The record is a 97-nucleotide RNA sequence, which matches "pemK RNA" in Rfam. The sequence is in the family's curated seed alignment.

RNA sequence: AUAAUGAUACUCCCCUAUAGCCACAGUCAAAGCUUAAACGGCUUGUAAAGGCAAUGGGUAGGGCUGGACUGUAAGUGCAGGAGUGAAAUUCUCGUGA
Number, nucleotide and partner (000 for none) at each position: 001a000002u000003a000004a000005u000006g000007a000008u000009a000010c000011u000012c094013c063014c062015c061016u060017a059018u058019a000020g000021c000022c000023a000024c000025a000026g000027u000028c000029a000030a000031a000032g000033c000034u000035u000036a000037a000038a000039c000040g000041g000042c000043u000044u000045g000046u000047a000048a000049a000050g000051g000052c000053a000054a000055u000056g000057g000058g018059u017060a016061g015062g014063g013064c080065u079066g078067g000068a076069c075070u074071g000072u000073a000074a070075g069076u068077g000078c066079a065080g064081g093082a092083g091084u000085g000086a000087a000088a000089u000090u000091c083092u082093c081094g012095u000096g000097a000